[Rfam]
RNA sequence: GGGAUGUUGAGGUAGGCUCAGUAGAUGCGAGGAGAUCCACCAUUCCUCACAUCGUCUGUCCUAACUCGCCUUCCC
Numbered sequence: 001g002g003g004a005u006g007u008u009g010a011g012g013u014a015g016g017c018u019c020a021g022u023a024g025a026u027g028c029g030a031g032g033a034g035a036u037c038c039a040c041c042a043u044u045c046c047u048c049a050c051a052u053c054g055u056c057u058g059u060c061c062u063a064a065c066u067c068g069c070c071u072u073c074c075c
Base pairs, nucleotide, nucleotide: 001075002074003073004072008068009067010066011065013063014062015061016060020057021056024053025052026051027050029048030047031046
Overview: The family of this 75-nucleotide RNA from Caenorhabditis briggsae is "mir-48 microRNA precursor family". For this family Rfam cites "An abundant class of tiny RNAs with probable regulatory roles in Caenorhabditis elegans" (Lau et al., Science, 2001). The base pairs follow the family's consensus structure, which was predicted with RNAalifold. NCBI's taxonomy places the organism under Eukaryota, Ecdysozoa, Chromadorea, Rhabditoidea, Caenorhabditis.